Description: Shown here is a 70-nucleotide RNA sequence from Orthohepacivirus hominis, a member of the family "Hepatitis C virus stem-loop VII".
RNA sequence: GAAGCUUAUCGCCCAGGGAGGGAACGCAGCGAUUUGCGGCAAGUACCUCUUUAAUUGGGCGGUAAGGACU
Numbered sequence: 001g002a003a004g005c006u007u008a009u010c011g012c013c014c015a016g017g018g019a020g021g022g023a024a025c026g027c028a029g030c031g032a033u034u035u036g037c038g039g040c041a042a043g044u045a046c047c048u049c050u051u052u053a054a055u056u057g058g059g060c061g062g063u064a065a066g067g068a069c070u
Stems, first nucleotide, its partner, number of pairs: 006065011017050005026040002029037002
Dot-bracket structure: .....((((((((((((((((....((.((.....)).)).....)))))....))))))))))).....
The family's consensus secondary structure was predicted with RNAfold. The literature on the family includes a 2016 paper in Mol Cell by Pirakitikulr et al., "The Coding Region of the HCV Genome Contains a Network of Regulatory RNA Structures". The organism belongs to Hepatitis C virus genotype 6, within Viruses. By type it is a cis-regulatory element.